[Rfam]
RNA sequence: UGGAUAAAACCCAAAACCGCUCUUUUGAUGCUUUUGCACGGACGCUUCUUGCAUGGUGGGAGGAUAUUGUGCUUAAUCCCAUUUCAUGUGUCAAGGCAAAGCAGUUUAGGCGCACUCUAUAUUACAACUGUACGAAAGGCGAAUAACUAUUUAUGACAAG
Numbered sequence: 001u002g003g004a005u006a007a008a009a010c011c012c013a014a015a016a017c018c019g020c021u022c023u024u025u026u027g028a029u030g031c032u033u034u035u036g037c038a039c040g041g042a043c044g045c046u047u048c049u050u051g052c053a054u055g056g057u058g059g060g061a062g063g064a065u066a067u068u069g070u071g072c073u074u075a076a077u078c079c080c081a082u083u084u085c086a087u088g089u090g091u092c093a094a095g096g097c098a099a100a101g102c103a104g105u106u107u108a109g110g111c112g113c114a115c116u117c118u119a120u121a122u123u124a125c126a127a128c129u130g131u132a133c134g135a136a137a138g139g140c141g142a143a144u145a146a147c148u149a150u151u152u153a154u155g156a157c158a159a160g
Stems, first nucleotide, its partner, number of pairs: 001013003021139007029132001030097005036091004044052002055083007101131005109118001

The family of this 160-nucleotide RNA is "RT-2 RNA". The base pairs follow the family's consensus structure, which is taken from published work. It is one of the family's seed sequences.